[Rfam]
RNA sequence: UCUGAAAAGACAGUGAUGCCUGAUUUCCAAGCACAUAGCUGACUUGCAUAUGCAGGCACUUUUGAGUCAGAGUCUUUUCAGU
Numbered sequence: 001u002c003u004g005a006a007a008a009g010a011c012a013g014u015g016a017u018g019c020c021u022g023a024u025u026u027c028c029a030a031g032c033a034c035a036u037a038g039c040u041g042a043c044u045u046g047c048a049u050a051u052g053c054a055g056g057c058a059c060u061u062u063u064g065a066g067u068c069a070g071a072g073u074c075u076u077u078u079c080a081g082u
Stems, first nucleotide, its partner, number of pairs: 002081005008075004
RNA: Small nucleolar RNA SNORD121A
Organism: Pelodiscus sinensis